[Rfam]
RNA sequence: GGAAAGAUGCUCGAGUGGUUGAAGAGGCACGCCUGGAAAGCGUGUAAGCGCCUAAAGCGUUUCACGGGUUCGAAUCCCGUUCUUUCCG
Dot-bracket structure: (((((((..(((...........))).(((((.......)))))...................(((((.......)))))))))))).
Shown here is an 88-nucleotide RNA sequence from Segatella baroniae, a member of the family "tRNA". Lineage of the source: Bacteria > Bacteroidota > Bacteroidia > Segatella > Segatella baroniae. Transfer RNA (tRNA) molecules are approximately 80 nucleotides in length. Pairs were carried over by alignment from the consensus structure, which is taken from published work.